[Rfam]
The record is a 35-nucleotide sequence from Pteropus vampyrus, which matches "Iron response element I" in Rfam. For this family Rfam cites "Structure of dual function iron regulatory protein 1 complexed with ferritin IRE-RNA" (Walden et al., Science, 2006). Rfam 15.1 lists 6,829 matches to the family in 599 species.

RNA sequence: UUUUCUCUUGCCUCAACAGUGUUUGGAUGGAACAG
Numbered sequence: 001u002u003u004u005c006u007c008u009u010g011c012c013u014c015a016a017c018a019g020u021g022u023u024u025g026g027a028u029g030g031a032a033c034a035g
Stems, first nucleotide, its partner, number of pairs: 001035002004032001006031003010028001013026004017021001